The record is a 72-nucleotide RNA sequence from Limnospira maxima, which matches "tRNA" in Rfam. Its family is annotated with triplet codon-amino acid adaptor activity in the Gene Ontology. Rfam classes the family as a transfer RNA. Transfer RNA (tRNA) molecules are approximately 80 nucleotides in length. Pairs were carried over by alignment from the consensus structure, which is taken from published work. The organism belongs to Limnospira maxima, within Bacteria.
[Rfam]
RNA sequence: GCCAGUAUAGCUCAGUGGUAGAGCAUCCGCCUUGUAAGCGGACGGUCAUCGGUUCAAGUCCGAUUACUGGCU
Numbered sequence: 001g002c003c004a005g006u007a008u009a010g011c012u013c014a015g016u017g018g019u020a021g022a023g024c025a026u027c028c029g030c031c032u033u034g035u036a037a038g039c040g041g042a043c044g045g046u047c048a049u050c051g052g053u054u055c056a057a058g059u060c061c062g063a064u065u066a067c068u069g070g071c072u
Stems, first nucleotide, its partner, number of pairs: 001071007010024004026042005048064005